[Rfam]
RNA sequence: UUUGGGAAAUGAUGAGAGACUCAAAACAUAUUAUCAGAAGCUCAAUGCUCUGUUGAAUGGUUUUUUUGCACGUCAGUCUGAUCCCAAA
Numbered sequence: 001u002u003u004g005g006g007a008a009a010u011g012a013u014g015a016g017a018g019a020c021u022c023a024a025a026a027c028a029u030a031u032u033a034u035c036a037g038a039a040g041c042u043c044a045a046u047g048c049u050c051u052g053u054u055g056a057a058u059g060g061u062u063u064u065u066u067u068g069c070a071c072g073u074c075a076g077u078c079u080g081a082u083c084c085c086a087a088a
Base pairs, nucleotide, nucleotide: 001088002087003086004085005084006083007082
RNA: Small nucleolar RNA Z122